Purine riboswitch aptamer: a 100-nucleotide RNA sequence from Romboutsia hominis. The source organism's lineage runs through Bacteria, Bacillota, Peptostreptococcales, Peptostreptococcaceae and Romboutsia. Riboswitches are metabolite binding domains within certain messenger RNAs that serve as precision sensors for their corresponding targets. The base pairs follow the family's consensus structure, which is taken from published work. The family is grouped with related families in Rfam's "Purine riboswitches".

[Rfam]
RNA sequence: AUAAAUAAUUUAGAGAGUCUACGUAUAAUCCCAAUGAUAUGGUUUGGGAGUUUCUACCAAGAACCGAUAAUUCUUGAUUACGAAGGAGUUUUACAUGAUU
Numbered sequence: 001a002u003a004a005a006u007a008a009u010u011u012a013g014a015g016a017g018u019c020u021a022c023g024u025a026u027a028a029u030c031c032c033a034a035u036g037a038u039a040u041g042g043u044u045u046g047g048g049a050g051u052u053u054c055u056a057c058c059a060a061g062a063a064c065c066g067a068u069a070a071u072u073c074u075u076g077a078u079u080a081c082g083a084a085g086g087a088g089u090u091u092u093a094c095a096u097g098a099u100u
Base pairs, nucleotide, nucleotide: 018086019085020084022082023081024080025079029049030048031047032046033045034044058076059075060074061073062072063071